[Rfam]
RNA sequence: AUAGAAAAUGUUUUGGCAGAAGCGGGGGACCCAAUCUUUGGGUUCUUUCAUAAAGAGCCCUUGGGGUGAAGUUGCAGAUCUAAAUGUAACCGAGUGAACCUUCUACUCGAACCCGACAGCUUACCUCGUGAGGCAAACGGAGGAAAU
Dot-bracket structure: .....................((((((....((............................))(((.....((((..........))))..((((.........))))...))).........))))))..................
Numbered sequence: 001a002u003a004g005a006a007a008a009u010g011u012u013u014u015g016g017c018a019g020a021a022g023c024g025g026g027g028g029a030c031c032c033a034a035u036c037u038u039u040g041g042g043u044u045c046u047u048u049c050a051u052a053a054a055g056a057g058c059c060c061u062u063g064g065g066g067u068g069a070a071g072u073u074g075c076a077g078a079u080c081u082a083a084a085u086g087u088a089a090c091c092g093a094g095u096g097a098a099c100c101u102u103c104u105a106c107u108c109g110a111a112c113c114c115g116a117c118a119g120c121u122u123a124c125c126u127c128g129u130g131a132g133g134c135a136a137a138c139g140g141a142g143g144a145a146a147u
Stems, first nucleotide, its partner, number of pairs: 022129006032063002064114003072089004092108004